[Rfam]
RNA sequence: UGGCCUGCUUCUGGUUGGAAGACUAGUGAUUUUGUUGUUGUGACGUAUAGAGAAGACAACAAAUCACAGCCUACCAUCCAGCACAGGCCC
Numbered sequence: 001u002g003g004c005c006u007g008c009u010u011c012u013g014g015u016u017g018g019a020a021g022a023c024u025a026g027u028g029a030u031u032u033u034g035u036u037g038u039u040g041u042g043a044c045g046u047a048u049a050g051a052g053a054a055g056a057c058a059a060c061a062a063a064u065c066a067c068a069g070c071c072u073a074c075c076a077u078c079c080a081g082c083a084c085a086g087g088c089c090c
Base pairs, nucleotide, nucleotide: 002089003088004087005086006085009083011081012080013079014078016076017075018074020072021071023069024068026067027066028065029064030063031062032061034060035059036058037057038056039055
RNA: mir-7 microRNA precursor family